A member of the RNA family "mir-30 microRNA precursor family" from Salmo salar, 64 nucleotides long. Rfam's curators write: This family consists of the mammalian microRNA (miRNA) precursor mir-30a. Animal miRNAs are transcribed as ~70nt precursors and subsequently processed by the Dicer enzyme to give a ~22nt product. In this case the mature sequence comes from both the 3' (miR-30) and 5' (mir-97-6) arms of the precursor. The extents of the hairpin precursors are not generally known and are estimated based on hairpin prediction. The products are thought to have regulatory roles through complementarity to mRNA. The involvement of Dicer in miRNA processing suggests a relationship with the phenomenon of RNA interference. miRNAs are numbered based on the sequence of the mature RNA. A reference for the family is Mourelatos et al. (2002), "miRNPs: a novel class of ribonucleoproteins containing numerous microRNAs", Genes Dev. Pairs were carried over by alignment from the consensus structure, which was predicted with PFOLD. Rfam 15.1 lists 3,879 matches to the family in 647 species.

RNA sequence: UGUAAACAUCCUUGACUGAAAGCUGGUGUUUCAUAUAGGGCUUUUCAGUCGGAUGUUUGCAGCU
Numbered sequence: 001u002g003u004a005a006a007c008a009u010c011c012u013u014g015a016c017u018g019a020a021a022g023c024u025g026g027u028g029u030u031u032c033a034u035a036u037a038g039g040g041c042u043u044u045u046c047a048g049u050c051g052g053a054u055g056u057u058u059g060c061a062g063c064u
Base pairs, nucleotide, nucleotide: 001061002060003059004058005057006056007055008054009053010052011051015049016048017047018046019045020044021043022042024040
Dot-bracket structure: (((((((((((...((((((((.(...............).)))))))).)))))))))))...